This 209-nucleotide RNA sequence from Dichanthelium oligosanthes belongs to the Rfam family "MIR1435 microRNA precursor family".
[Rfam]
RNA sequence: UAGUUUUGUAGGAAGUCAACCUACUCUAACUUUGACCAUGUUUAUAGAAAAAUAUAUUAACAUCUGCAAUACCAAAUAAAUGCACUAUCAAGACAUAUUUCAUGGUGUUCAUGGUGGAUUUAAUGAAACCAAUUCGAUGUUGUAGAUGUUGGUGCAUUUUUUUAUAAACUUGGUCAAAGUUAGAGAAGUUUUACCUAGGACAAAACUAA
Numbered sequence: 001u002a003g004u005u006u007u008g009u010a011g012g013a014a015g016u017c018a019a020c021c022u023a024c025u026c027u028a029a030c031u032u033u034g035a036c037c038a039u040g041u042u043u044a045u046a047g048a049a050a051a052a053u054a055u056a057u058u059a060a061c062a063u064c065u066g067c068a069a070u071a072c073c074a075a076a077u078a079a080a081u082g083c084a085c086u087a088u089c090a091a092g093a094c095a096u097a098u099u100u101c102a103u104g105g106u107g108u109u110c111a112u113g114g115u116g117g118a119u120u121u122a123a124u125g126a127a128a129c130c131a132a133u134u135c136g137a138u139g140u141u142g143u144a145g146a147u148g149u150u151g152g153u154g155c156a157u158u159u160u161u162u163u164a165u166a167a168a169c170u171u172g173g174u175c176a177a178a179g180u181u182a183g184a185g186a187a188g189u190u191u192u193a194c195c196u197a198g199g200a201c202a203a204a205a206c207u208a209a
Stems, first nucleotide, its partner, number of pairs: 005204005013196001015194002018191002021188002024185003031178005045164008055154003059150010073136001075134003

The match comes from Rfam's covariance-model search (97 bits). The organism belongs to Dichanthelium, within Eukaryota. Its family is annotated with RISC complex and miRNA-mediated post-transcriptional gene silencing in the Gene Ontology.